Source information: Shown here is a 354-nucleotide part of an RNA from Calditerricola satsumensis, a member of the family "Bacterial small subunit ribosomal RNA". Rfam 15.1 lists 42,628 matches to the family in 10,626 species. Rfam links the family to the GO terms structural constituent of ribosome and ribosome.
[Rfam]
RNA sequence: GGCGUAAAGCGCGCGUAGGCGGCCUCUUAAGUCCGGUGUGAAAGCCCGCGGCUCAACCGCGGGAGGCCACUGGAAACUGGGAGGCUUGAGGGCAGGAGAGGGGAGUGGAAUUCCCGGUGUAGCGGUGAAAUGCGUAGAGAUCGGGAGGAACACCAGUGGCGAAGGCGGCUCCCUGGCCUGUACCUGACGCUGAGGCGCGAAAGCGUGGGGAGCAAACAGGAUUAGAUACCCUGGUAGUCCACGCCGUAAACGAUGGGUGCUAGGUGUGAGGGGCGUUUGGCCCUUCGUGCCGAAGCUAACGCGAUAAGCACCCCGCCUGGGGAGUACGGCCGCAAGGCUGAAACUCAAAGGAAU
Numbered sequence: 001g002g003c004g005u006a007a008a009g010c011g012c013g014c015g016u017a018g019g020c021g022g023c024c025u026c027u028u029a030a031g032u033c034c035g036g037u038g039u040g041a042a043a044g045c046c047c048g049c050g051g052c053u054c055a056a057c058c059g060c061g062g063g064a065g066g067c068c069a070c071u072g073g074a075a076a077c078u079g080g081g082a083g084g085c086u087u088g089a090g091g092g093c094a095g096g097a098g099a100g101g102g103g104a105g106u107g108g109a110a111u112u113c114c115c116g117g118u119g120u121a122g123c124g125g126u127g128a129a130a131u132g133c134g135u136a137g138a139g140a141u142c143g144g145g146a147g148g149a150a151c152a153c154c155a156g157u158g159g160c161g162a163a164g165g166c167g168g169c170u171c172c173c174u175g176g177c178c179u180g181u182a183c184c185u186g187a188c189g190c191u192g193a194g195g196c197g198c199g200a201a202a203g204c205g206u207g208g209g210g211a212g213c214a215a216a217c218a219g220g221a222u223u224a225g226a227u228a229c230c231c232u233g234g235u236a237g238u239c240c241a242c243g244c245c246g247u248a249a250a251c252g253a254u255g256g257g258u259g260c261u262a263g264g265u266g267u268g269a270g271g272g273g274c275g276u277u278u279g280g281c282c283c284u285u286c287g288u289g290c291c292g293a294a295g296c297u298a299a300c301g302c303g304a305u306a307a308g309c310a311c312c313c314c315g316c317c318u319g320g321g322g323a324g325u326a327c328g329g330c331c332g333c334a335a336g337g338c339u340g341a342a343a344c345u346c347a348a349a350g351g352a353a354u
Stems, first nucleotide, its partner, number of pairs: 001317003009314001011198004016192001018191003022085007030078002032074007045063007089185003092181005100174007107151001111147008122133003159166002203244006212238002217233004255313006263291012295302002319346003328339004
Dot-bracket structure: (((.....(.((((.(.(((.(((((((.(((((((((......(((((((.....)))))))....)))))))..)))))))))...((((((((...((((((((...((((((((...(((......)))......))))))))...).......((....)).)))))))..))))).)))...))))..))))....((((((...((...((((.........))))...))))))))..........((((((..((((((((((((.....))))))))))))...((....)).....)))))))))).(((......((((....))))....)))........